[Rfam]
RNA sequence: UUCCUAAACCCUAACGGGCAUGGAACAAAGUCCUCGACAGUAGCAAGCUCUCGUUAGAGCGCUGUCGAGGCUGCAUGCCGAAAGGCGUGUAGGUGGCGCAAGCCAUC
Numbered sequence: 001u002u003c004c005u006a007a008a009c010c011c012u013a014a015c016g017g018g019c020a021u022g023g024a025a026c027a028a029a030g031u032c033c034u035c036g037a038c039a040g041u042a043g044c045a046a047g048c049u050c051u052c053g054u055u056a057g058a059g060c061g062c063u064g065u066c067g068a069g070g071c072u073g074c075a076u077g078c079c080g081a082a083a084g085g086c087g088u089g090u091a092g093g094u095g096g097c098g099c100a101a102g103c104c105a106u107c
Base pairs, nucleotide, nucleotide: 001025002024003023004022009018010017011016032070033069034068035067036066037065038064039063040062041061047060048059049058050057051056072091073090074089075088076087077086078085079084092107093106094105095104096103097102
Dot-bracket structure: ((((....(((....)))...))))......((((((((((.....(((((....))))))))))))))).((((((((....))))))))((((((....))))))

This 107-nucleotide sequence belongs to the Rfam family "LOOT RNA".
Rfam classes the family as a small RNA.